[Rfam]
RNA: U8 small nucleolar RNA
Organism: Aotus nancymaae
RNA sequence: UUCUCAGGUGUGAUCAUCCUUGCCUGCUCCUCUUUUGGAGGGCGGAGUUCGUGAUGACUAGAGUUCACGUGCUAUGUGAUUAACUCUCUGCCUCAUCAGGAUUUGCAACAUCCUGAUUGCUCCUACCUGAU
Numbered sequence: 001u002u003c004u005c006a007g008g009u010g011u012g013a014u015c016a017u018c019c020u021u022g023c024c025u026g027c028u029c030c031u032c033u034u035u036u037g038g039a040g041g042g043c044g045g046a047g048u049u050c051g052u053g054a055u056g057a058c059u060a061g062a063g064u065u066c067a068c069g070u071g072c073u074a075u076g077u078g079a080u081u082a083a084c085u086c087u088c089u090g091c092c093u094c095a096u097c098a099g100g101a102u103u104u105g106c107a108a109c110a111u112c113c114u115g116a117u118u119g120c121u122c123c124u125a126c127c128u129g130a131u
Base pairs, nucleotide, nucleotide: 024045025044026043028042029041030040031039032038033037071088074085076084077082093119095117096116097115098114099113100112